[Rfam]
RNA sequence: GUCACGAACCCGCCGUUAACCGCGAAAGCGGUAUAACGGGGGCUUGAAAAAGUCCAAACGUGACCAGACUAAGUUCUUAGAGAACUCCGUUAUCUGGGUCAAGACACCUAAGAAUGCGUGCCAGUUUUUAGCUCUGUCGUCUAACUUUAAACAGAUUUAAUCGGGUUAAGUUAGUGAGUUAGACCCAACAAGCCCAGAUAACAUUGUCAAGGCAAAC
Numbered sequence: 001g002u003c004a005c006g007a008a009c010c011c012g013c014c015g016u017u018a019a020c021c022g023c024g025a026a027a028g029c030g031g032u033a034u035a036a037c038g039g040g041g042g043c044u045u046g047a048a049a050a051a052g053u054c055c056a057a058a059c060g061u062g063a064c065c066a067g068a069c070u071a072a073g074u075u076c077u078u079a080g081a082g083a084a085c086u087c088c089g090u091u092a093u094c095u096g097g098g099u100c101a102a103g104a105c106a107c108c109u110a111a112g113a114a115u116g117c118g119u120g121c122c123a124g125u126u127u128u129u130a131g132c133u134c135u136g137u138c139g140u141c142u143a144a145c146u147u148u149a150a151a152c153a154g155a156u157u158u159a160a161u162c163g164g165g166u167u168a169a170g171u172u173a174g175u176g177a178g179u180u181a182g183a184c185c186c187a188a189c190a191a192g193c194c195c196a197g198a199u200a201a202c203a204u205u206g207u208c209a210a211g212g213c214a215a216a217c
Stems, first nucleotide, its partner, number of pairs: 001064006010042002013039006043052003067208003071204001072086005089202011104137002108131008119215001120213003139184009151175002154172007